Shown here is a 67-nucleotide RNA sequence from Haliscomenobacter hydrossis, a member of the family "DUF805 RNA".
The family's RNA type in Rfam is cis-regulatory element.
The base pairs follow the family's consensus structure, which is taken from published work.
The match comes from Rfam's covariance-model search (81 bits).
[Rfam]
RNA sequence: CGUCAGUGGAGUCCAGAAACCACUAAAAAACGGGGCGAGACCGAAAAGCCUUACGAGUAGGAAAAAA
Numbered sequence: 001c002g003u004c005a006g007u008g009g010a011g012u013c014c015a016g017a018a019a020c021c022a023c024u025a026a027a028a029a030a031c032g033g034g035g036c037g038a039g040a041c042c043g044a045a046a047a048g049c050c051u052u053a054c055g056a057g058u059a060g061g062a063a064a065a066a067a
Stems, first nucleotide, its partner, number of pairs: 006023004034050003041061002
Dot-bracket structure: .....((((..........))))..........(((....[[.....))).........]]......